Rfam assigns this 425-nucleotide RNA from Pseudescherichia vulneris to the family "cspA thermoregulator".
Pairs were carried over by alignment from the consensus structure, which is taken from published work.
The family's RNA type in Rfam is RNA thermoregulator.
[Rfam]
RNA sequence: AUCGGUUUGAUAUACAGACCUUAAAGCAGUUUAGUAAAGCAGUCCCCUUCAAGAGUUAUCAUAGAUACUCCUCGUAGUGAGCUCUCCUUUAUCGCUUAAAAAAUCUGUAAAGCACGCCAUAGCGCCGGAAGGCAAACUUAAUUAAAAAGGUAAUAUCUAUGUCUAACAAAAUGACUGGUUUAGUAAAAUGGUUUAACGCUGACAAAGGUUUCGGCUUCAUCACUCCUGACGAUGGCUCUAAAGACGUGUUCGUACACUUCUCUGCUAUCCAGAACGAUGGCUACAAAUCUCUUGAUGAAGGCCAGAAAGUAUCCUUCACCAUCGAAAGCGGCGCUAAAGGCCCGUCUGCUGGUAACGUUGUAAGCCUGUAAGCUUAACGUUUAAAGCUCGAUGUUAAAAAAACCCGCCUCGGCGGGUUUUUUGUU
Numbered sequence: 001a002u003c004g005g006u007u008u009g010a011u012a013u014a015c016a017g018a019c020c021u022u023a024a025a026g027c028a029g030u031u032u033a034g035u036a037a038a039g040c041a042g043u044c045c046c047c048u049u050c051a052a053g054a055g056u057u058a059u060c061a062u063a064g065a066u067a068c069u070c071c072u073c074g075u076a077g078u079g080a081g082c083u084c085u086c087c088u089u090u091a092u093c094g095c096u097u098a099a100a101a102a103a104u105c106u107g108u109a110a111a112g113c114a115c116g117c118c119a120u121a122g123c124g125c126c127g128g129a130a131g132g133c134a135a136a137c138u139u140a141a142u143u144a145a146a147a148a149g150g151u152a153a154u155a156u157c158u159a160u161g162u163c164u165a166a167c168a169a170a171a172u173g174a175c176u177g178g179u180u181u182a183g184u185a186a187a188a189u190g191g192u193u194u195a196a197c198g199c200u201g202a203c204a205a206a207g208g209u210u211u212c213g214g215c216u217u218c219a220u221c222a223c224u225c226c227u228g229a230c231g232a233u234g235g236c237u238c239u240a241a242a243g244a245c246g247u248g249u250u251c252g253u254a255c256a257c258u259u260c261u262c263u264g265c266u267a268u269c270c271a272g273a274a275c276g277a278u279g280g281c282u283a284c285a286a287a288u289c290u291c292u293u294g295a296u297g298a299a300g301g302c303c304a305g306a307a308a309g310u311a312u313c314c315u316u317c318a319c320c321a322u323c324g325a326a327a328g329c330g331g332c333g334c335u336a337a338a339g340g341c342c343c344g345u346c347u348g349c350u351g352g353u354a355a356c357g358u359u360g361u362a363a364g365c366c367u368g369u370a371a372g373c374u375u376a377a378c379g380u381u382u383a384a385a386g387c388u389c390g391a392u393g394u395u396a397a398a399a400a401a402a403c404c405c406g407c408c409u410c411g412g413c414g415g416g417u418u419u420u421u422u423g424u425u
Base pairs, nucleotide, nucleotide: 004020005019006018007017008016009015025227026226028224029223030222039217042216044214045213046208047207048206049205055203056202057201058200060198062196064194065193067192068191069190073161074160075159076158077157086150087149088148089147090146092145094113095112096111097110124133125132126131163178164177165176230324231323232322233321234320235319243251244250254312256310257309258308259307261306262305263304264303265301266300268295269294271292272291273290276289277288278287329344330343331342333341334340335339346368348366349364350363352361353360372392374390376388378386397422398421399420400419401418402417403416404415405414406413407412

Rfam 15.1 lists 2,094 matches to the family in 1,285 species.